[Rfam]
RNA sequence: GAGAUAAAAUUAGCGCCAUGUACCUCUAUUGGACGGGAAAUUUAGAGGUUAACGAGGUAGGGAGUUAGCGAAUCUUCGGCGGAUGCUCUCUCGUACAGUUUGAGUGCGUAAGGUGCUGAAAAAAUGGCAGGUAACUGCAGCACAACAGCAGUACUAUCAAACAA
Numbered sequence: 001g002a003g004a005u006a007a008a009a010u011u012a013g014c015g016c017c018a019u020g021u022a023c024c025u026c027u028a029u030u031g032g033a034c035g036g037g038a039a040a041u042u043u044a045g046a047g048g049u050u051a052a053c054g055a056g057g058u059a060g061g062g063a064g065u066u067a068g069c070g071a072a073u074c075u076u077c078g079g080c081g082g083a084u085g086c087u088c089u090c091u092c093g094u095a096c097a098g099u100u101u102g103a104g105u106g107c108g109u110a111a112g113g114u115g116c117u118g119a120a121a122a123a124a125u126g127g128c129a130g131g132u133a134a135c136u137g138c139a140g141c142a143c144a145a146c147a148g149c150a151g152u153a154c155u156a157u158c159a160a161a162c163a164a
Stems, first nucleotide, its partner, number of pairs: 022049007059091005069078003092108005113154006125140001127138004